[Rfam]
RNA sequence: GCCUUACUUCAGCAGCACAGUUAAUACUGGAGAUAUUGACAGUCUUAACACCAAUAUUUACGUGCUGCUAAAGUAUGAC
Number, nucleotide and partner (000 for none) at each position: 001g079002c000003c077004u000005u075006a074007c073008u000009u000010c000011a069012g068013c067014a066015g065016c064017a063018c062019a000020g000021u060022u000023a058024a057025u056026a055027c000028u053029g052030g051031a000032g000033a000034u000035a000036u000037u000038g000039a000040c000041a000042g000043u000044c000045u000046u000047a000048a000049c000050a000051c030052c029053a028054a000055u026056a025057u024058u023059u000060a021061c000062g018063u017064g016065c015066u014067g013068c012069u011070a000071a000072a000073g007074u006075a005076u000077g003078a000079c001
This 79-nucleotide sequence from Dicrurus megarhynchus belongs to the Rfam family "mir-16 microRNA precursor family". Taxonomically the source falls in Dicrurus (Eukaryota, Chordata, Coelurosauria, Aves). Its Rfam clan is "mir-15 clan". The family has 14 seed sequences and 4,705 matches in Rfam 15.1. A search with the family's covariance model found it, with a score of 44 bits. For this family Rfam cites "Frequent deletions and down-regulation of micro- RNA genes miR15 and miR16 at 13q14 in chronic lymphocytic leukemia" (Calin et al., Proc Natl Acad Sci U S A, 2002). The family's consensus secondary structure was predicted with PFOLD. Gene Ontology terms of the family: miRNA-mediated post-transcriptional gene silencing and RISC complex.